[Rfam]
RNA sequence: AUGUAAAUCAGUAUAUGGGGAUGUUUCCCUUACAUUCAACGUCGGGAGUACGGAAAAAUAAAAGGGGAGAUAAAAUCCCCCCUUUUUGGUUAACC
Numbered sequence: 001a002u003g004u005a006a007a008u009c010a011g012u013a014u015a016u017g018g019g020g021a022u023g024u025u026u027c028c029c030u031u032a033c034a035u036u037c038a039a040c041g042u043c044g045g046g047a048g049u050a051c052g053g054a055a056a057a058a059u060a061a062a063a064g065g066g067g068a069g070a071u072a073a074a075a076u077c078c079c080c081c082c083u084u085u086u087u088g089g090u091u092a093a094c095c
Stems, first nucleotide, its partner, number of pairs: 008038001010036003016032005061085007069077003
The record is a 95-nucleotide RNA from Pseudescherichia vulneris, which matches "sraA" in Rfam. The source organism's lineage runs through Bacteria, Pseudomonadati, Enterobacterales, Pseudescherichia and Pseudescherichia vulneris. By type it is a small RNA. The literature on the family includes a 2001 paper in Curr Biol by Argaman et al., "Novel small RNA-encoding genes in the intergenic regions of Escherichia coli".